A member of the RNA family "c-di-GMP-I riboswitch aptamer" from Paenibacillus abyssi, 84 nucleotides long. The source organism's lineage runs through Bacteria, Bacilli, Caryophanales, Paenibacillaceae and Paenibacillus. Pairs were carried over by alignment from the consensus structure, which is taken from published work. Rfam describes the family as follows. GEMM was predicted in a large-scale screen for bacterial structured RNA regulatory elements. It scores 76 bits against the family's covariance model.
[Rfam]
RNA sequence: ACCUGAUAAAGGCAAAAUCAUCGAAAGAUGAUGACGCAAAGCUAGAGGGGCUAAGGGUACAAACUAUGCCAGCCAGUUGCCAAG
Number, nucleotide and partner (000 for none) at each position: 001a000002c000003c000004u000005g000006a000007u000008a000009a000010a000011g000012g037013c036014a000015a000016a000017a032018u031019c030020a029021u028022c027023g000024a000025a000026a000027g022028a021029u020030g019031a018032u017033g000034a000035c000036g013037c012038a000039a000040a078041g077042c076043u075044a000045g000046a000047g074048g073049g070050g069051c068052u000053a000054a000055g000056g064057g000058u062059a000060c000061a000062a058063a000064c056065u000066a000067u000068g051069c050070c049071a000072g000073c048074c047075a043076g042077u041078u040079g000080c000081c000082a000083a000084g000